[Rfam]
RNA sequence: GCACCUGAUCUUUCCCAUUCCUUGCUGCCUCGUGCAGGCCUGGGGACACGUGGUGCUUACAGAAAAGCAGAGUAAAUCCAGACAGGUGUGUUUGCUCCCUGAACACUUGUCCCUACAACUCUGCAACAGUU
Numbered sequence: 001g002c003a004c005c006u007g008a009u010c011u012u013u014c015c016c017a018u019u020c021c022u023u024g025c026u027g028c029c030u031c032g033u034g035c036a037g038g039c040c041u042g043g044g045g046a047c048a049c050g051u052g053g054u055g056c057u058u059a060c061a062g063a064a065a066a067g068c069a070g071a072g073u074a075a076a077u078c079c080a081g082a083c084a085g086g087u088g089u090g091u092u093u094g095c096u097c098c099c100u101g102a103a104c105a106c107u108u109g110u111c112c113c114u115a116c117a118a119c120u121c122u123g124c125a126a127c128a129g130u131u
Base pairs, nucleotide, nucleotide: 001056002055003054004053005052012046013045014044015043016042017041020038021037067124068123069122070121071120072119081111082110083109084108085107086106087105091103092102093101
Overview:
Shown here is a 131-nucleotide RNA from Crypturellus soui, a member of the family "Small nucleolar RNA SNORA55". Rfam describes the family as follows. ACA55 is a member of the H/ACA class of snoRNA that guide the sites of modification of uridines to pseudouridines. Gene Ontology terms of the family: RNA processing and nucleolus.